RNA sequence: CGGCGGGCGCGGACCGGUUCUGGGGGACUUGCCGCGGAGGAAAGUCCGGACUCCACAGGGCUCGGUGGUGGGUAACGCCCACCGUCCGGGGCGUUCGCGCUUCGGAUAGGGAAAGUGCCACAGAAAGUAAACCGCCUCGGUGGAGGGAUUCACGUCCUGAAACCGCGGUAAGGGUGAAACGGUGAGGUAAGAGCUCACCAGCAGGCCGGGUGACCGGUCUGGCUCGGCAAACCCCACCGGGAGCAAGGCCAAAUAGGGGAGCAGCGGGAACAGCGUGGGCGUCGAAGGGCCGGGCGACCGGACCUCGCGAGCCUUCGUCCCGCACGGGUCGGCCCGAUCCGUCAUCGACUCCCGGGUAGGUCGCUUGAGGCGUCGGGAGACCGGCGUCCCAGAGAAAUGAUCAUCCGAGGUCCGAACGGGCGGCUUGCCGUCCCCACGACCUUCGACAGAAUCCGGCUUACGCCGCCCGCCGCGAC
Numbered sequence: 001c002g003g004c005g006g007g008c009g010c011g012g013a014c015c016g017g018u019u020c021u022g023g024g025g026g027a028c029u030u031g032c033c034g035c036g037g038a039g040g041a042a043a044g045u046c047c048g049g050a051c052u053c054c055a056c057a058g059g060g061c062u063c064g065g066u067g068g069u070g071g072g073u074a075a076c077g078c079c080c081a082c083c084g085u086c087c088g089g090g091g092c093g094u095u096c097g098c099g100c101u102u103c104g105g106a107u108a109g110g111g112a113a114a115g116u117g118c119c120a121c122a123g124a125a126a127g128u129a130a131a132c133c134g135c136c137u138c139g140g141u142g143g144a145g146g147g148a149u150u151c152a153c154g155u156c157c158u159g160a161a162a163c164c165g166c167g168g169u170a171a172g173g174g175u176g177a178a179a180c181g182g183u184g185a186g187g188u189a190a191g192a193g194c195u196c197a198c199c200a201g202c203a204g205g206c207c208g209g210g211u212g213a214c215c216g217g218u219c220u221g222g223c224u225c226g227g228c229a230a231a232c233c234c235c236a237c238c239g240g241g242a243g244c245a246a247g248g249c250c251a252a253a254u255a256g257g258g259g260a261g262c263a264g265c266g267g268g269a270a271c272a273g274c275g276u277g278g279g280c281g282u283c284g285a286a287g288g289g290c291c292g293g294g295c296g297a298c299c300g301g302a303c304c305u306c307g308c309g310a311g312c313c314u315u316c317g318u319c320c321c322g323c324a325c326g327g328g329u330c331g332g333c334c335c336g337a338u339c340c341g342u343c344a345u346c347g348a349c350u351c352c353c354g355g356g357u358a359g360g361u362c363g364c365u366u367g368a369g370g371c372g373u374c375g376g377g378a379g380a381c382c383g384g385c386g387u388c389c390c391a392g393a394g395a396a397a398u399g400a401u402c403a404u405c406c407g408a409g410g411u412c413c414g415a416a417c418g419g420g421c422g423g424c425u426u427g428c429c430g431u432c433c434c435c436a437c438g439a440c441c442u443u444c445g446a447c448a449g450a451a452u453c454c455g456g457c458u459u460a461c462g463c464c465g466c467c468c469g470c471c472g473c474g475a476c
Stems, first nucleotide, its partner, number of pairs: 001472009011461001012405002016401001018399001020037003024033002042459003046456005051243004058335004063239005068082005083109001084107010110234002115232002117228003132173002134169003138165004181199006201223001202221008247362004257353005326340005369388008
This 476-nucleotide sequence from Planctomyces sp. SH-PL62 belongs to the Rfam family "Bacterial RNase P class A". Lineage of the source: Bacteria > Pseudomonadati > Planctomycetia > Planctomycetales > Planctomyces. Rfam classes the family as a ribozyme. Ribonuclease P (RNase P) is a ubiquitous endoribonuclease, found in archaea, bacteria and eukarya as well as chloroplasts and mitochondria. Its best characterised activity is the generation of mature 5'-ends of tRNAs by cleaving the 5'-leader elements of precursor-tRNAs.